[Rfam]
RNA sequence: AAAGCGAAUUGGACAGCGGCGGGAUGCCGGAAACGGCAUCGUGAGGAAAGUCCGGGCUCCACAGGGCGGGAUACCUGCUAACGGCAGGCCGAGGCGACUCGAGGGAAAGUGCAACAGAGAGAUACCGCCAUCCUCGGAUGGUAAGGGUGGAAAGGCGGGGUAAGAGCCCACCGGGAUGCGGGCGACCGCAUUGCCAUGUAAACCCUAUCCGGAGCAACACCAGCUGGAACAAUGCGGCUGCCCGCCGGGUUCCGAAAGGUGGCUUGAGCUGUAUGGCAACGUACGGCCUAGAAAGAUCGUUGUCCGCGACAGAACCCGGCUUAUAGAUUCCCUUUCUGC
Numbered sequence: 001a002a003a004g005c006g007a008a009u010u011g012g013a014c015a016g017c018g019g020c021g022g023g024a025u026g027c028c029g030g031a032a033a034c035g036g037c038a039u040c041g042u043g044a045g046g047a048a049a050g051u052c053c054g055g056g057c058u059c060c061a062c063a064g065g066g067c068g069g070g071a072u073a074c075c076u077g078c079u080a081a082c083g084g085c086a087g088g089c090c091g092a093g094g095c096g097a098c099u100c101g102a103g104g105g106a107a108a109g110u111g112c113a114a115c116a117g118a119g120a121g122a123u124a125c126c127g128c129c130a131u132c133c134u135c136g137g138a139u140g141g142u143a144a145g146g147g148u149g150g151a152a153a154g155g156c157g158g159g160g161u162a163a164g165a166g167c168c169c170a171c172c173g174g175g176a177u178g179c180g181g182g183c184g185a186c187c188g189c190a191u192u193g194c195c196a197u198g199u200a201a202a203c204c205c206u207a208u209c210c211g212g213a214g215c216a217a218c219a220c221c222a223g224c225u226g227g228a229a230c231a232a233u234g235c236g237g238c239u240g241c242c243c244g245c246c247g248g249g250u251u252c253c254g255a256a257a258g259g260u261g262g263c264u265u266g267a268g269c270u271g272u273a274u275g276g277c278a279a280c281g282u283a284c285g286g287c288c289u290a291g292a293a294a295g296a297u298c299g300u301u302g303u304c305c306g307c308g309a310c311a312g313a314a315c316c317c318g319g320c321u322u323a324u325a326g327a328u329u330c331c332c333u334u335u336c337u338g339c
Base pairs, nucleotide, nucleotide: 001335002334003333004332006330007329008328009327010326011324012304013303014302015301016300017299018298020043021042023040024039025038026037027036028035048322049321050320052319053318054317055316056315057214058213059212060211064243065242066241067240069210070209071208072207073206074088075087076086077085078084089103090101091100092099093098104205105204109203110202111199112198113197125146126145127142128141129140130139131138132137154172155171157169158168159167173194174192176191177190178189179188180187181186218261219260220259221258227252228251229250230249235247236246237245238244268287269286270285271284272283273282274281275280
This 339-nucleotide sequence from Anaerotruncus sp. G3(2012) belongs to the Rfam family "Bacterial RNase P class A". The organism belongs to Anaerotruncus, within Bacteria. Ribonuclease P (RNase P) is a ubiquitous endoribonuclease, found in archaea, bacteria and eukarya as well as chloroplasts and mitochondria.